[Rfam]
RNA sequence: AAAAUAAGCUUCUAGGGUUCCGGUUGAUAACGUCUGGUCCGAGAGAAGCAAGCUGCUCUAAGUAGCUACACGGAGGGAGAAAAGCCCGGGAGAA
Numbered sequence: 001a002a003a004a005u006a007a008g009c010u011u012c013u014a015g016g017g018u019u020c021c022g023g024u025u026g027a028u029a030a031c032g033u034c035u036g037g038u039c040c041g042a043g044a045g046a047a048g049c050a051a052g053c054u055g056c057u058c059u060a061a062g063u064a065g066c067u068a069c070a071c072g073g074a075g076g077g078a079g080a081a082a083a084g085c086c087c088g089g090g091a092g093a094a
Stems, first nucleotide, its partner, number of pairs: 008049005015040002020037002022034001023031003051067006069089001071092001075087003

Rfam assigns this 94-nucleotide RNA sequence from Gloeocapsa sp. PCC 73106 to the family "Guanidine-I riboswitch aptamer".
It scores 83 bits against the family's covariance model.
Its family is annotated with regulation of gene expression in the Gene Ontology.
From the family's description: This family represents a conserved RNA structure found upstream of the ykkC and yxkD genes in Bacillus subtilis and related genes in other bacteria.